[Rfam]
RNA sequence: AAGCGUUCUCAGGGCGGGGUGAAAGUCCCCACCGGCGGUGAUGGCGAGUAAUCGCAUCAGCCCGCGAGCGCCCGCCCUGGCGUGAAACUUGGGCGGGGUCAGCAGAUUCGGUGCAACUCCGAAGCCGACGGUCACAGUCCGGAUGAAAGAGAUCGCGA
Number, nucleotide and partner (000 for none) at each position: 001a000002a000003g156004c155005g154006u000007u152008c151009u150010c149011a000012g000013g000014g000015c000016g000017g029018g028019g027020u000021g000022a000023a000024a000025g000026u000027c019028c018029c017030c000031a138032c137033c127034g126035g065036c064037g063038g062039u000040g000041a000042u000043g000044g000045c000046g000047a000048g000049u000050a000051a000052u000053c000054g000055c000056a000057u000058c000059a000060g125061c124062c038063c037064g036065c035066g000067a000068g103069c102070g000071c000072c000073c000074g000075c000076c000077c000078u000079g000080g000081c000082g000083u000084g000085a000086a000087a000088c000089u000090u000091g000092g000093g000094c000095g000096g000097g000098g000099u000100c000101a000102g069103c068104a000105g000106a000107u123108u122109c121110g120111g119112u000113g000114c000115a000116a000117c000118u000119c111120c110121g109122a108123a107124g061125c060126c034127g033128a000129c141130g140131g139132u000133c000134a000135c000136a000137g032138u031139c131140c130141g129142g000143a000144u000145g000146a000147a000148a000149g010150a009151g008152a007153u000154c005155g004156c003157g000158a000
RNA: FMN riboswitch aptamer (RFN element)
Organism: Rhodoferax sediminis